Small nucleolar RNA snoR77: a 129-nucleotide RNA from Artemisia annua. The family has 5 seed sequences and 649 matches in Rfam 15.1. The source organism's lineage runs through Eukaryota, Asteroideae, Anthemideae, Artemisiinae and Artemisia. Rfam classes the family as an H/ACA-box small nucleolar RNA. On this family, see Marker et al., Curr Biol 2002: "Experimental RNomics: identification of 140 candidates for small non-messenger RNAs in the plant Arabidopsis thaliana".
[Rfam]
RNA sequence: AGGCAACCUACUUUUAAAUGAAUACAAUUAAAUGGAAGGUGUUUAUCCGGUCAGAUAUUAGUUUAUUUUGCUCUUCAGAUUUGCUGAGACUUUUGUCUUUGAAGCUGGUCUAGUAAGCUAAGUUACAUU
Numbered sequence: 001a002g003g004c005a006a007c008c009u010a011c012u013u014u015u016a017a018a019u020g021a022a023u024a025c026a027a028u029u030a031a032a033u034g035g036a037a038g039g040u041g042u043u044u045a046u047c048c049g050g051u052c053a054g055a056u057a058u059u060a061g062u063u064u065a066u067u068u069u070g071c072u073c074u075u076c077a078g079a080u081u082u083g084c085u086g087a088g089a090c091u092u093u094u095g096u097c098u099u100u101g102a103a104g105c106u107g108g109u110c111u112a113g114u115a116a117g118c119u120a121a122g123u124u125a126c127a128u129u
Stems, first nucleotide, its partner, number of pairs: 002043004007039002009036001011034001013032005065123003070118003077111005083105003088097003